[Rfam]
RNA sequence: UCACCAUUUGGCUAUGAUGUCAGCCUUUAAACGCGAAAAAGCUGAUGACAUCUGUUAGGGU
Numbered sequence: 001u002c003a004c005c006a007u008u009u010g011g012c013u014a015u016g017a018u019g020u021c022a023g024c025c026u027u028u029a030a031a032c033g034c035g036a037a038a039a040a041g042c043u044g045a046u047g048a049c050a051u052c053u054g055u056u057a058g059g060g061u
Stems, first nucleotide, its partner, number of pairs: 010025004016052006033042002
Dot-bracket structure: .........[[[[..((((((]]]].......((......))....)))))).........

Fluoride riboswitch aptamer (crcB RNA motif): a 61-nucleotide sequence. The family's consensus secondary structure is taken from published work.